The family of this 47-nucleotide sequence from Crossiella cryophila is "L31-Actinobacteria ribosomal protein leader".
The source organism's lineage runs through Bacteria, Actinomycetota, Actinomycetes, Pseudonocardiales and Crossiella.
The family's RNA type in Rfam is cis-regulatory leader.
The base pairs follow the family's consensus structure, which is taken from published work.

RNA sequence: AAGGCUCCGGUUCACCCCGUUGUACGGCUCGUGGGGACCCGGCGGCC
Number, nucleotide and partner (000 for none) at each position: 001a000002a000003g047004g046005c045006u000007c042008c041009g040010g039011u000012u000013c000014a000015c036016c035017c034018c033019g032020u000021u031022g030023u000024a000025c000026g000027g000028c000029u000030c022031g021032u019033g018034g017035g016036g015037a000038c000039c010040c009041g008042g007043c000044g000045g005046c004047c003